[Rfam]
Archaeal large subunit ribosomal RNA: a 262-nucleotide part of an RNA from Methanobrevibacter smithii. The family's consensus secondary structure is taken from published work. The organism belongs to Methanobrevibacter smithii, within Archaea. Clan: LSU clan.
RNA sequence: GAGUUCUUUGUUGUGGUGAGGCUAAAAGGUUUUUAUCCUUGUAGUCGUAGGGAAACCGAUAUGCCCGCAGCUUUGUUGAGGGGCAAGGUCUUAAUAGGGCCUGGAAUCACAGCAUUGAAACCCGAAGCCGGUCGAUCUAUUCCUGAGCAGGAUGAAGUCGCUCUUACGAGCGAUGGAGGUUCGCAGGGUUGUUGUUCUGCAAAACACUCUUUUGACUUGGGAAUAGUGGUGAAAGGCCAAUCAAGGCCGGCGACAGCUGGUU
Numbered sequence: 001g002a003g004u005u006c007u008u009u010g011u012u013g014u015g016g017u018g019a020g021g022c023u024a025a026a027a028g029g030u031u032u033u034u035a036u037c038c039u040u041g042u043a044g045u046c047g048u049a050g051g052g053a054a055a056c057c058g059a060u061a062u063g064c065c066c067g068c069a070g071c072u073u074u075g076u077u078g079a080g081g082g083g084c085a086a087g088g089u090c091u092u093a094a095u096a097g098g099g100c101c102u103g104g105a106a107u108c109a110c111a112g113c114a115u116u117g118a119a120a121c122c123c124g125a126a127g128c129c130g131g132u133c134g135a136u137c138u139a140u141u142c143c144u145g146a147g148c149a150g151g152a153u154g155a156a157g158u159c160g161c162u163c164u165u166a167c168g169a170g171c172g173a174u175g176g177a178g179g180u181u182c183g184c185a186g187g188g189u190u191g192u193u194g195u196u197c198u199g200c201a202a203a204a205c206a207c208u209c210u211u212u213u214g215a216c217u218u219g220g221g222a223a224u225a226g227u228g229g230u231g232a233a234a235g236g237c238c239a240a241u242c243a244a245g246g247c248c249g250g251c252g253a254c255a256g257c258u259g260g261u262u
Stems, first nucleotide, its partner, number of pairs: 005118002009114009020046004026040004050057002063084004070077001087101004121260002124257001128250006137226011148214001150182004157174007186211003191207002194205002228238003